[Rfam]
RNA sequence: UGAAAUGGAAGGCAGUCUAAGAUCGCGACGUCCUGUCGCAACGACUGCAUACCUGCCUCCUCGCAGG
Numbered sequence: 001u002g003a004a005a006u007g008g009a010a011g012g013c014a015g016u017c018u019a020a021g022a023u024c025g026c027g028a029c030g031u032c033c034u035g036u037c038g039c040a041a042c043g044a045c046u047g048c049a050u051a052c053c054u055g056c057c058u059c060c061u062c063g064c065a066g067g
Base pairs, nucleotide, nucleotide: 012048013047014046015045016044017043025039026038027037028036029035052067053066054065055064056063